[Rfam]
RNA: T-box leader
Organism: Enterococcus columbae
RNA sequence: AUGAGUACUUUGAUGAGAAGAGUAGCUUGAUGAAAUAGUUAAAGAGAAUCCGGUUGGUGAGAAAGGAUGCUAGGCAGUUAAGUGAAGAUGAGCUCUGAGUUUCCAAAUUGUUCACGCAGUUUGGACGGGAAUGACCGUUAUAUCAUCGGGUUUCAAUAGGAACCUUUUGAGGUAUAGUCUGUGAAGGCUAUAUAAAUUAGGGUGGUAACACGAUUUUUCAGUCGUCCCUUUA
Numbered sequence: 001a002u003g004a005g006u007a008c009u010u011u012g013a014u015g016a017g018a019a020g021a022g023u024a025g026c027u028u029g030a031u032g033a034a035a036u037a038g039u040u041a042a043a044g045a046g047a048a049u050c051c052g053g054u055u056g057g058u059g060a061g062a063a064a065g066g067a068u069g070c071u072a073g074g075c076a077g078u079u080a081a082g083u084g085a086a087g088a089u090g091a092g093c094u095c096u097g098a099g100u101u102u103c104c105a106a107a108u109u110g111u112u113c114a115c116g117c118a119g120u121u122u123g124g125a126c127g128g129g130a131a132u133g134a135c136c137g138u139u140a141u142a143u144c145a146u147c148g149g150g151u152u153u154c155a156a157u158a159g160g161a162a163c164c165u166u167u168u169g170a171g172g173u174a175u176a177g178u179c180u181g182u183g184a185a186g187g188c189u190a191u192a193u194a195a196a197u198u199a200g201g202g203u204g205g206u207a208a209c210a211c212g213a214u215u216u217u218u219c220a221g222u223c224g225u226c227c228c229u230u231u232a
Stems, first nucleotide, its partner, number of pairs: 007100002015095003025083006037071003048068004103124009126137003172193007199229004210225005